This 100-nucleotide RNA from Desulfocicer vacuolatum belongs to the Rfam family "Pyrrolysine insertion sequence mtbB". The match comes from Rfam's covariance-model search (85 bits). The family has 23 seed sequences and 59 matches in Rfam 15.1. The family's RNA type in Rfam is cis-regulatory element. The literature on the family includes a 2013 paper in BMC Bioinformatics by Theil Have et al., "Effects of using coding potential, sequence conservation and mRNA structure conservation for predicting pyrroly-sine containing genes". The source organism's lineage runs through Bacteria, Pseudomonadati, Thermodesulfobacteriota, Desulfobacteria and Desulfocicer vacuolatum.

RNA sequence: UAGGUUGGCGUCGGCGAUCCCCUUGGAAUGGCAGUAACCCACGCAUUGGCCUCGGGAAUGGGCGGAAUGCGGGCAGCCGGAGAUCUGGUUGCCCGUAUGC
Numbered sequence: 001u002a003g004g005u006u007g008g009c010g011u012c013g014g015c016g017a018u019c020c021c022c023u024u025g026g027a028a029u030g031g032c033a034g035u036a037a038c039c040c041a042c043g044c045a046u047u048g049g050c051c052u053c054g055g056g057a058a059u060g061g062g063c064g065g066a067a068u069g070c071g072g073g074c075a076g077c078c079g080g081a082g083a084u085c086u087g088g089u090u091g092c093c094c095g096u097a098u099g100c
Stems, first nucleotide, its partner, number of pairs: 007038001010035002013032001015030002018026002073092005079086002